[Rfam]
RNA sequence: UAACGAAAGCAGAAGCACCCGCUUCUCACCUGACCGACGCUUAAGUGGCUGUUGGCAGGUUGUUACGGUUCGUCAAUGGUUUAUUCGAACAUCGUGCGCGGGUGCCUUGUGCAUCCGCGCUUUUUUGUUAGG
Number, nucleotide and partner (000 for none) at each position: 001u000002a000003a000004c000005g000006a000007a000008a000009g000010c000011a026012g025013a024014a023015g022016c021017a000018c000019c000020c000021g016022c015023u014024u013025c012026u011027c000028a060029c059030c058031u000032g000033a000034c000035c000036g053037a052038c051039g049040c048041u000042u000043a000044a000045g000046u000047g000048g040049c039050u000051g038052u037053u036054g000055g000056c000057a000058g030059g029060u028061u000062g000063u000064u000065a000066c000067g000068g000069u000070u000071c000072g000073u000074c000075a000076a000077u000078g000079g000080u000081u000082u000083a000084u000085u000086c000087g000088a000089a000090c000091a000092u000093c000094g000095u000096g000097c119098g118099c117100g116101g115102g114103u113104g112105c111106c000107u000108u000109g000110u000111g105112c104113a103114u102115c101116c100117g099118c098119g097120c000121u000122u000123u000124u000125u000126u000127g000128u000129u000130a000131g000132g000
A member of the RNA family "Ribosomal protein L20 leader" from Geobacillus thermodenitrificans, 132 nucleotides long. On this family, see Zengel and Lindahl, Prog Nucleic Acid Res Mol Biol 1994: "Diverse mechanisms for regulating ribosomal protein synthesis in Escherichia coli". The source organism's lineage runs through Bacteria, Bacillota, Caryophanales, Anoxybacillaceae and Geobacillus thermodenitrificans. Rfam's curators write: This family is a putative r-protein leader autoregulatory structure found in B. subtilis and other low-GC Gram-positive bacteria. The base pairs follow the family's consensus structure, which was predicted with CMfinder.